[Rfam]
Overview
SAM riboswitch aptamer (S box leader): a 99-nucleotide sequence from Clostridium tepidiprofundi.
RNA sequence: CUCUUAUCAAGAGAGGUGGAGGGAAGGGCCCUAUGAAACCCAGCAACCGAUGCUUUGCAUUAUGGUGCUAAUUCCUGCAGAUUUGCUGCAAGAUAAGAG
Numbered sequence: 001c002u003c004u005u006a007u008c009a010a011g012a013g014a015g016g017u018g019g020a021g022g023g024a025a026g027g028g029c030c031c032u033a034u035g036a037a038a039c040c041c042a043g044c045a046a047c048c049g050a051u052g053c054u055u056u057g058c059a060u061u062a063u064g065g066u067g068c069u070a071a072u073u074c075c076u077g078c079a080g081a082u083u084u085g086c087u088g089c090a091a092g093a094u095a096a097g098a099g
Base pairs, nucleotide, nucleotide: 001099002098003097004096005095006094007093008092013041015040016039017038021031022030023029026076027075028074042069043068044067045066047065048064049061050060051059052058073091078088079087080086